[Rfam]
RNA sequence: GUACAACUCAAUAAUAAGCUGUGGACAGCCGGUGCGUUUGCAUAAUGGCCCGAAAGCCGCCGGCCGAGGCCUAUCUCUUUACUGCGUAUAAAUUACGAGGCCUCUGUGUUUUGUCCACAGAGGCCAUUUUGGUUGUGAGU
Number, nucleotide and partner (000 for none) at each position: 001g000002u000003a000004c000005a000006a000007c000008u000009c000010a000011a000012u000013a000014a000015u000016a000017a000018g000019c000020u000021g000022u000023g000024g000025a000026c000027a000028g064029c063030c062031g061032g060033u059034g041035c040036g000037u000038u000039u000040g035041c034042a000043u000044a000045a000046u000047g000048g000049c000050c000051c000052g000053a000054a000055a000056g000057c000058c000059g033060c032061c031062g030063g029064c028065c000066g000067a000068g000069g000070c000071c000072u000073a000074u000075c000076u000077c000078u000079u000080u000081a000082c000083u000084g000085c000086g000087u000088a000089u000090a000091a000092a000093u000094u000095a000096c000097g000098a000099g125100g124101c123102c122103u121104c120105u119106g118107u117108g116109u000110u000111u000112u000113g000114u000115c000116c108117a107118c106119a105120g104121a103122g102123g101124c100125c099126a000127u000128u000129u000130u000131g000132g000133u000134u000135g000136u000137g000138a000139g000140u000
A member of the RNA family "Ribosomal protein L10 leader" from Pelotomaculum isophthalicicum, 140 nucleotides long.